[Rfam]
RNA sequence: GAGGCUCGGGUUUCAUUCAAGCCGUCUUUUCUUCCUAUUGGUAAUAAGAAAAUUCUGACUUGAUUGAUUCCCGAGUCAG
Numbered sequence: 001g002a003g004g005c006u007c008g009g010g011u012u013u014c015a016u017u018c019a020a021g022c023c024g025u026c027u028u029u030u031c032u033u034c035c036u037a038u039u040g041g042u043a044a045u046a047a048g049a050a051a052a053u054u055c056u057g058a059c060u061u062g063a064u065u066g067a068u069u070c071c072c073g074a075g076u077c078a079g
Base pairs, nucleotide, nucleotide: 003077004076005075006074008072009071010070013067014066015065017063018062019061020060021059025052027050028049029048030047
A member of the RNA family "mir-1422 microRNA precursor family" from Ornithorhynchus anatinus, 79 nucleotides long.